Description
This 77-nucleotide sequence from Armadillidium nasatum belongs to the Rfam family "mir-1 microRNA precursor family". A search with the family's covariance model found it, with a score of 50 bits. NCBI's taxonomy places the organism under Eukaryota, Communostraca, Crinocheta, Armadillidiidae, Armadillidium. Rfam describes the family as follows. This family represents the microRNA (miRNA) mir-1 family. miRNAs are transcribed as ~70nt precursors (modelled here) and subsequently processed by the Dicer enzyme to give a ~22nt product.
RNA sequence: CACGCAACUCCAUACUUCUUUACAUUCCAUAGCUUUACAUCUCGCGUAUGGGACGUAAGGAAGCAUGGGGAUGAAGA
Numbered sequence: 001c002a003c004g005c006a007a008c009u010c011c012a013u014a015c016u017u018c019u020u021u022a023c024a025u026u027c028c029a030u031a032g033c034u035u036u037a038c039a040u041c042u043c044g045c046g047u048a049u050g051g052g053a054c055g056u057a058a059g060g061a062a063g064c065a066u067g068g069g070g071a072u073g074a075a076g077a
Stems, first nucleotide, its partner, number of pairs: 008070006015063009025053001027051005